[Rfam]
The record is a 65-nucleotide RNA sequence from Mus spicilegus, which matches "U7 small nuclear RNA" in Rfam.
RNA sequence: AAUUUUUCACAGCUCUUUUAGAAUUUUUUUCUAACGGGAUCUCUGACCUUGGUCGGAAAUCCCAA
Number, nucleotide and partner (000 for none) at each position: 001a000002a000003u000004u000005u000006u000007u000008c000009a000010c000011a000012g000013c000014u000015c000016u000017u000018u000019u000020a000021g000022a000023a000024u000025u000026u000027u000028u000029u000030u000031c000032u000033a000034a000035c000036g000037g062038g061039a060040u059041c000042u057043c056044u055045g054046a053047c052048c000049u000050u000051g000052g047053u046054c045055g044056g043057a042058a000059a040060u039061c038062c037063c000064a000065a000
From the family's description: Animal histone pre-mRNAs are spliced by a different mechanism than nuclear pre-mRNAs and self-splicing introns. This processing involves the U7 snRNP, which contains only one RNA species: U7. The 5' end of U7 RNA is thought to base-pair to a conserved spacer element downstream of the cleavage site in histone pre-mRNA. This family contains a number of annotated U7 pseudogenes. It scores 37 bits against the family's covariance model.